[Rfam]
RNA sequence: UUAGCUCUCUUUGCCUUUUGGCUUAGAUCAAGUGUAGUAUCUGUUCUUUUCAGUUUAAUCUCUGAAAGUAUUCUAUGGAAUACAUUCUCGAUUAUACUAAUUUUUGUCCACCGGAAGACAUCCCUCUGGGCUUGCCCAUGGUCGCCUUUCACUGUGUCCCUGGUAUUACACUGCCUCCAGGCGACGCGAACACUC
Numbered sequence: 001u002u003a004g005c006u007c008u009c010u011u012u013g014c015c016u017u018u019u020g021g022c023u024u025a026g027a028u029c030a031a032g033u034g035u036a037g038u039a040u041c042u043g044u045u046c047u048u049u050u051c052a053g054u055u056u057a058a059u060c061u062c063u064g065a066a067a068g069u070a071u072u073c074u075a076u077g078g079a080a081u082a083c084a085u086u087c088u089c090g091a092u093u094a095u096a097c098u099a100a101u102u103u104u105u106g107u108c109c110a111c112c113g114g115a116a117g118a119c120a121u122c123c124c125u126c127u128g129g130g131c132u133u134g135c136c137c138a139u140g141g142u143c144g145c146c147u148u149u150c151a152c153u154g155u156g157u158c159c160c161u162g163g164u165a166u167u168a169c170a171c172u173g174c175c176u177c178c179a180g181g182c183g184a185c186g187c188g189a190a191c192a193c194u195c
Base pairs, nucleotide, nucleotide: 008027009026010025013022014021015020048067049066050065051064052063053062068083069082070081071080072079073078113150114149115148116147117146119144127138128137129136130135153188154187155186156185157184158183159181160180161179162178163177
RNA: U2 spliceosomal RNA